[Rfam]
RNA sequence: GUAUUCGGAUUCACAUCAAUCCACAUGUGUUGGGAACUUGGGAUGGAUUGGAGUGGAACUUAAACUAAAUUCCAACCCAAUCCACUUUAUCACAUGUGGAUUGGGGUGAAUCCGACA
Number, nucleotide and partner (000 for none) at each position: 001g000002u000003a000004u000005u115006c114007g113008g112009a111010u110011u109012c108013a107014c106015a000016u104017c103018a102019a101020u100021c099022c098023a097024c096025a095026u094027g093028u092029g091030u000031u089032g088033g000034g000035a000036a000037c000038u000039u000040g000041g000042g000043a000044u084045g083046g082047a081048u080049u079050g078051g077052a000053g000054u074055g073056g000057a000058a000059c000060u000061u000062a000063a000064a000065c000066u000067a000068a000069a000070u000071u000072c000073c055074a054075a000076c000077c051078c050079a049080a048081u047082c046083c045084a044085c000086u000087u000088u032089a031090u000091c029092a028093c027094a026095u025096g024097u023098g022099g021100a020101u019102u018103g017104g016105g000106g014107u013108g012109a011110a010111u009112c008113c007114g006115a005116c000117a000

The record is a 117-nucleotide RNA from Sorghum bicolor, which matches "MIR5565 microRNA precursor family" in Rfam.